RNA sequence: ACUAUAUCUUUGGCAGUGUCCAAAAUAUUGU
Number, nucleotide and partner (000 for none) at each position: 001a031002c030003u000004a028005u027006a026007u025008c000009u024010u023011u022012g021013g020014c018015a000016g000017u000018g014019u000020c013021c012022a011023a010024a009025a007026u006027a005028u004029u000030g002031u001

Description:
Rfam assigns this 31-nucleotide RNA sequence from Ceratopteris richardii to the family "Iron response element II". Pairs were carried over by alignment from the consensus structure, which is taken from published work. Gene Ontology term of the family: response to iron ion. About the family: IRE, TFRC, SLC40A1, SDHB, SLC11A2, CDC42BPA, ACO2, ALAS2_H.SAPIENS, CDC14A, EPAS1, ALAS2, qoxD, Hao1, NDUFS1, transferrin, Aconitate. Taxonomically the source falls in Ceratopteris (Eukaryota, Euphyllophyta, Polypodiidae, Pteridineae). It is annotated as a cis-regulatory element. The match comes from Rfam's covariance-model search (36 bits).